The family of this 48-nucleotide RNA sequence from Streptomyces sp. Root264 is "raiA-hairpin RNA". It scores 66 bits against the family's covariance model.

[Rfam]
RNA sequence: CGCCAAGUCGGAGGUUCCGGUGCUCACCGGGGCCUGGUGCAAAAGGGA
Dot-bracket structure: ............((((((((......))))))))..............
Overview
Pairs were carried over by alignment from the consensus structure, which is taken from published work.